Rfam assigns this 312-nucleotide RNA from Ralstonia phage RsoM2USA to the family "Betaproteobacteria transfer-messenger RNA". The base pairs follow the family's consensus structure, which is taken from published work. Lineage of the source: Viruses > Duplodnaviria > Heunggongvirae > Uroviricota > Caudoviricetes. It scores 92 bits against the family's covariance model. About the family: Bacterial tmRNA, also known as 10Sa RNA or SsrA, is named for its dual tRNA and mRNA-like properties. Its role is to liberate the mRNA from a stalled ribosome. To accomplish this part of the tmRNA is used as a reading frame that ends in a translation stop signal. The broken mRNA is replaced in the ribosome by the tmRNA and translation of the tmRNA leads to addition of a proteolysis tag to the incomplete protein enabling recognition by a protease.

[Rfam]
RNA sequence: CAAUUCGUAUUACUUUGAUUUUCUGCUUAAGUAAAGAAUAGUCGUUGAUAGCAACAGAAAAGCUGAACAAGACGCGGGUUCGACUCCCGCCCACUCCACCCAUUUAAUUUUCAUGGGGUGGUCAUGGUAUCGAUUGGCAGACAAGUACGAAGCUGGAGAUUAUCGUCAGGAGUAGACGUUAAAAGCAAAUUAAACUAAACGCUAACGAUUCACGUUACGCCGUAGCAGCCUGAGCUAAAGGUCUGCUGGAGUUGGUCACUGACUUAGCAACAGAAUAGUUGACAGAAGGGUAGAGCAAUCUACCCUUUUUCA
Numbered sequence: 001c002a003a004u005u006c007g008u009a010u011u012a013c014u015u016u017g018a019u020u021u022u023c024u025g026c027u028u029a030a031g032u033a034a035a036g037a038a039u040a041g042u043c044g045u046u047g048a049u050a051g052c053a054a055c056a057g058a059a060a061a062g063c064u065g066a067a068c069a070a071g072a073c074g075c076g077g078g079u080u081c082g083a084c085u086c087c088c089g090c091c092c093a094c095u096c097c098a099c100c101c102a103u104u105u106a107a108u109u110u111u112c113a114u115g116g117g118g119u120g121g122u123c124a125u126g127g128u129a130u131c132g133a134u135u136g137g138c139a140g141a142c143a144a145g146u147a148c149g150a151a152g153c154u155g156g157a158g159a160u161u162a163u164c165g166u167c168a169g170g171a172g173u174a175g176a177c178g179u180u181a182a183a184a185g186c187a188a189a190u191u192a193a194a195c196u197a198a199a200c201g202c203u204a205a206c207g208a209u210u211c212a213c214g215u216u217a218c219g220c221c222g223u224a225g226c227a228g229c230c231u232g233a234g235c236u237a238a239a240g241g242u243c244u245g246c247u248g249g250a251g252u253u254g255g256u257c258a259c260u261g262a263c264u265u266a267g268c269a270a271c272a273g274a275a276u277a278g279u280u281g282a283c284a285g286a287a288g289g290g291u292a293g294a295g296c297a298a299u300c301u302a303c304c305c306u307u308u309u310u311c312a
Stems, first nucleotide, its partner, number of pairs: 040163001051153002055149001064139002068136003074090005091121007164178004249265004255283004259278002286307009